Bacterial large subunit ribosomal RNA: a 234-nucleotide part of an RNA from Lusitaniella coriacea. Taxonomically the source falls in Lusitaniella coriacea (Bacteria, Bacillati, Cyanobacteriota, Lusitaniellaceae).
[Rfam]
Nucleotides: 234
Stems, first nucleotide, its partner, number of pairs: 005091013019043004025037003047054002057069004094232002097229001101222006110198011121186001123155003130147006159183003163180005200210003
Number, partner (000 for none) and nucleotide at each position: 001000g002000a003000c004000u005091a006090a007089c008088a009087g010086g011085c012084u013083g014082u015081g016080g017079c018000a019043g020042g021041u022040u023000a024000a025037g026036g027035c028000a029000g030000a031000a032000a033000a034000a035027g036026c037025c038000g039000a040022a041021g042020c043019c044000c045000a046000a047054g048053c049000g050000a051000a052000a053048g054047c055000g056000a057069g058068u059067c060066u061000g062000a063000a064000a065000a066060g067059g068058g069057c070000g071000a072000a073000a074000u075000a076000a077000g078000u079017g080016u081015c082014a083013c084012a085011g086010u087009u088008u089007g090006u091005u092000g093000a094232c095231c096000c097229g098000a099000a100000c101222c102221c103220g104219g105218g106217u107000g108000a109000u110198c111197u112196a113195a114194c115193c116192a117191u118190g119189u120188c121186c122000a123155g124154g125153a126000g127000g128000a129000a130147g131146c132145u133144u134143g135142g136000g137000u138000a139000a140000a141000a142135c143134c144133a145132a146131g147130u148000g149000g150000a151000g152000g153125u154124c155123c156000g157000a158000a159183c160182c161181g162000a163180c164179c165178a166177a167176c168000g169000u170000u171000g172000a173000a174000a175000a176167g177166u178165u179164g180163g181161c182160g183159g184000a185000u186121g187000a188120g189119g190118u191117g192116u193115g194114g195113u196112u197111a198110g199000g200210g201209g202208u203000g204000a205000a206000a207000u208202g209201c210200c211000a212000a213000u214000c215000g216000a217106a218105c219104c220103c221102g222101g223000a224000g225000c226000u227000a228000g229097c230000u231095g232094g233000u234000u